[Rfam]
RNA sequence: CGAACGAAAAGCUUGUGUAAGGGGAAAACAUACGGACAGUGAGUUUCCUCACCGUCGUCAUAACCCUUGGGAAGGUCUGAGAAAAACUAUAAAAAUCUCUAGCUGAGAUUCCUGUGAGAAUGGGAGCGAAUAAACAGAAACGAUACCCUCCUGGAUUAUAAUAUGAAGUCUUUUGACGGAUUGGCAUGGUCCAUGGAGUGUUUGAACGUGGUUCGCUAGUGGUAGCUCUAUGAAGUACGAUACGCAAGGCAUCAUAUUUGAUGUAACUCAAUUCAGACUACUCUUUCGUUCG
Numbered sequence: 001c002g003a004a005c006g007a008a009a010a011g012c013u014u015g016u017g018u019a020a021g022g023g024g025a026a027a028a029c030a031u032a033c034g035g036a037c038a039g040u041g042a043g044u045u046u047c048c049u050c051a052c053c054g055u056c057g058u059c060a061u062a063a064c065c066c067u068u069g070g071g072a073a074g075g076u077c078u079g080a081g082a083a084a085a086a087c088u089a090u091a092a093a094a095a096u097c098u099c100u101a102g103c104u105g106a107g108a109u110u111c112c113u114g115u116g117a118g119a120a121u122g123g124g125a126g127c128g129a130a131u132a133a134a135c136a137g138a139a140a141c142g143a144u145a146c147c148c149u150c151c152u153g154g155a156u157u158a159u160a161a162u163a164u165g166a167a168g169u170c171u172u173u174u175g176a177c178g179g180a181u182u183g184g185c186a187u188g189g190u191c192c193a194u195g196g197a198g199u200g201u202u203u204g205a206a207c208g209u210g211g212u213u214c215g216c217u218a219g220u221g222g223u224a225g226c227u228c229u230a231u232g233a234a235g236u237a238c239g240a241u242a243c244g245c246a247a248g249g250c251a252u253c254a255u256a257u258u259u260g261a262u263g264u265a266a267c268u269c270a271a272u273u274c275a276g277a278c279u280a281c282u283c284u285u286u287c288g289u290u291c292g
Stems, first nucleotide, its partner, number of pairs: 001292004007286003012248007020068005039052005077276005086220004095109005110125006126216006144200003249264006
RNA: Nuclear RNase P